[Rfam]
Nucleotides: 054
Base pairs, nucleotide, nucleotide: 013043014041015040016039020036021035022034023033024032025031
Number, partner (000 for none) and nucleotide at each position: 001000a002000g003000a004000a005000g006000u007000g008000c009000c010000a011000c012000a013043u014041g015040u016039a017000a018000g019000u020036c021035g022034c023033u024032u025031u026000g027000g028000a029000u030000a031025a032024a033023a034022g035021c036020g037000u038000c039016u040015g041014c042000c043013a044000a045000a046000u047000g048000a049000a050000u051000a052000a053000a054000u